RNA: c-di-GMP-I-GGC riboswitch aptamer
Organism: Geosporobacter ferrireducens
RNA sequence: CACGAUAAGGGCAAACCAUUCGAAAGAAUGGGACGCAAAACCAUAGGGCCUUUUACUUGUAAAUGGCAGCCGUGUUACCGAAA
Numbered sequence: 001c002a003c004g005a006u007a008a009g010g011g012c013a014a015a016c017c018a019u020u021c022g023a024a025a026g027a028a029u030g031g032g033a034c035g036c037a038a039a040a041c042c043a044u045a046g047g048g049c050c051u052u053u054u055a056c057u058u059g060u061a062a063a064u065g066g067c068a069g070c071c072g073u074g075u076u077a078c079c080g081a082a083a
Base pairs, nucleotide, nucleotide: 003080004079011036012035016031017030018029019028020027021026034069039076040075041074044072046071047070048067049066050065